[Rfam]
Description
This 261-nucleotide part of an RNA from Nitrosotalea sinensis belongs to the Rfam family "Archaeal large subunit ribosomal RNA". NCBI's taxonomy places the organism under Archaea, Nitrososphaerota, Nitrososphaeria, Nitrosotaleales, Nitrosotalea.
RNA sequence: GGAUACUUGAGGGGAAGUUGCUCCGAGUACGAGAGGAACAGAGCAGCGUGGCCUCUGGUUUAACGGUUGUCUGAUAAGGCAGGCCGUGCAGCUAAGCCAUUUAGGCUAACUCCUGAAAGCAUCUAAGGAGGAAACCUAUCCUGAGAAAAGGUAUCCGGUCGUAAGACAAAGGGUGGCAGCAGAAGACUGCUUUGAUAGAACAGCAGUGUAUGCUCCAAGGUUCGCCGAGGGGCGAGCUGGCUGUUACUAACAACCCAAUAC
Numbered sequence: 001g002g003a004u005a006c007u008u009g010a011g012g013g014g015a016a017g018u019u020g021c022u023c024c025g026a027g028u029a030c031g032a033g034a035g036g037a038a039c040a041g042a043g044c045a046g047c048g049u050g051g052c053c054u055c056u057g058g059u060u061u062a063a064c065g066g067u068u069g070u071c072u073g074a075u076a077a078g079g080c081a082g083g084c085c086g087u088g089c090a091g092c093u094a095a096g097c098c099a100u101u102u103a104g105g106c107u108a109a110c111u112c113c114u115g116a117a118a119g120c121a122u123c124u125a126a127g128g129a130g131g132a133a134a135c136c137u138a139u140c141c142u143g144a145g146a147a148a149a150g151g152u153a154u155c156c157g158g159u160c161g162u163a164a165g166a167c168a169a170a171g172g173g174u175g176g177c178a179g180c181a182g183a184a185g186a187c188u189g190c191u192u193u194g195a196u197a198g199a200a201c202a203g204c205a206g207u208g209u210a211u212g213c214u215c216c217a218a219g220g221u222u223c224g225c226c227g228a229g230g231g232g233c234g235a236g237c238u239g240g241c242u243g244u245u246a247c248u249a250a251c252a253a254c255c256c257a258a259u260a261c
Base pairs, nucleotide, nucleotide: 001156002155003154004153005152006151007150008149011142012141013140014139017047018046019045020044021043022042023041048100049099050098051097052096056094057093058092063087064086065085066084067083068081069080070079071078072077103137104136105135110130111129112128113127114126171256172255173254174253175191176190177189178188179187196249197248198247199245200244201243202242203241204239205238206237209234212233213232214231215230216229219226
About this RNA
The base pairs follow the family's consensus structure, which is taken from published work.